The family of this 107-nucleotide sequence from Abrus precatorius is "Plant small nucleolar RNA R71". Lineage of the source: Eukaryota > Viridiplantae > Mesangiospermae > Pentapetalae > Abrus. For this family Rfam cites "Plant snoRNAs: functional evolution and new modes of gene expression" (Brown et al., Trends Plant Sci, 2003). The base pairs follow the family's consensus structure, which was predicted with PFOLD.
RNA sequence: AAAUCAUGAUGAGGACAUCUCCUCAAAAGUUCUUCAAACCGCUUCCAUGCCUCGAACAAGGAUUCUACUUCAUAUUGUUGGAAGCAACAUAUCUCUAUCAUGAGUUU
Numbered sequence: 001a002a003a004u005c006a007u008g009a010u011g012a013g014g015a016c017a018u019c020u021c022c023u024c025a026a027a028a029g030u031u032c033u034u035c036a037a038a039c040c041g042c043u044u045c046c047a048u049g050c051c052u053c054g055a056a057c058a059a060g061g062a063u064u065c066u067a068c069u070u071c072a073u074a075u076u077g078u079u080g081g082a083a084g085c086a087a088c089a090u091a092u093c094u095c096u097a098u099c100a101u102g103a104g105u106u107u
Stems, first nucleotide, its partner, number of pairs: 001107001003105002005102002058073001060071001